[Rfam]
RNA sequence: AAAACCUUUAAGUAUAGUCCAGAGAGGCUAGGAAGGUUGUGAACGUGACUUGUAUGAUAUUACCGAGAGUAGUAUGUACAGGUGUACCUCUUUGCGACCUUUCGUAAAGAGGUUUUUUUA
Numbered sequence: 001a002a003a004a005c006c007u008u009u010a011a012g013u014a015u016a017g018u019c020c021a022g023a024g025a026g027g028c029u030a031g032g033a034a035g036g037u038u039g040u041g042a043a044c045g046u047g048a049c050u051u052g053u054a055u056g057a058u059a060u061u062a063c064c065g066a067g068a069g070u071a072g073u074a075u076g077u078a079c080a081g082g083u084g085u086a087c088c089u090c091u092u093u094g095c096g097a098c099c100u101u102u103c104g105u106a107a108a109g110a111g112g113u114u115u116u117u118u119u120a
Base pairs, nucleotide, nucleotide: 003038004037005036006035007034008033009032015030016029017028018027019026051078052077053076054075057073058072061069084115086113087112088111089110090109091108092107093106094105095104096103097102
RNA: PyrR binding site
Organism: Piscibacillus halophilus